[Rfam]
RNA sequence: AUGGGGUCUUACUGUGUUGCCUAGGCUGGUCUCAAACUCCUGGCCUAGGCAACACAGCAAGACCCCUU
Numbered sequence: 001a002u003g004g005g006g007u008c009u010u011a012c013u014g015u016g017u018u019g020c021c022u023a024g025g026c027u028g029g030u031c032u033c034a035a036a037c038u039c040c041u042g043g044c045c046u047a048g049g050c051a052a053c054a055c056a057g058c059a060a061g062a063c064c065c066c067u068u
Stems, first nucleotide, its partner, number of pairs: 007062004012057003019050007032043003
Dot-bracket structure: ......((((.(((....(((((((......(((......))))))))))....))).))))......

The family of this 68-nucleotide sequence from Microcebus murinus is "mir-1285 microRNA precursor family". The source organism's lineage runs through Eukaryota, Craniata, Vertebrata, Strepsirrhini and Microcebus. Pairs were carried over by alignment from the consensus structure, which was predicted with RNAalifold. Rfam links the family to the GO terms RISC complex and miRNA-mediated post-transcriptional gene silencing.